[Rfam]
RNA sequence: AAGACCGCGAGGGAUUGUCUGAAGGAAGCCUAAGUGCAAAACGACGAGCCGACGAACAGAAAUCGGAUAUAAGGCUGAGCAGCAGGGUCGAGUUGGCACAGGACAACGAAGGCCAUGAAUUCGCGCUGUACAGUAAAUCCGGCGGUUGUGUCGUGACAGUUCAUGUU
Numbered sequence: 001a002a003g004a005c006c007g008c009g010a011g012g013g014a015u016u017g018u019c020u021g022a023a024g025g026a027a028g029c030c031u032a033a034g035u036g037c038a039a040a041a042c043g044a045c046g047a048g049c050c051g052a053c054g055a056a057c058a059g060a061a062a063u064c065g066g067a068u069a070u071a072a073g074g075c076u077g078a079g080c081a082g083c084a085g086g087g088u089c090g091a092g093u094u095g096g097c098a099c100a101g102g103a104c105a106a107c108g109a110a111g112g113c114c115a116u117g118a119a120u121u122c123g124c125g126c127u128g129u130a131c132a133g134u135a136a137a138u139c140c141g142g143c144g145g146u147u148g149u150g151u152c153g154u155g156a157c158a159g160u161u162c163a164u165g166u167u
Stems, first nucleotide, its partner, number of pairs: 001016002005012002028167001030165001036160002041154006047147005063142006074134003079129005086114004092107004

This 167-nucleotide sequence from Methylomonas sp. LL1 belongs to the Rfam family "Group II catalytic intron D1-D4-3".
Rfam's curators write: Group II introns are found in rRNA, tRNA and mRNA of organelles in fungi, plants and protists, and also in mRNA in bacteria.
Pairs were carried over by alignment from the consensus structure.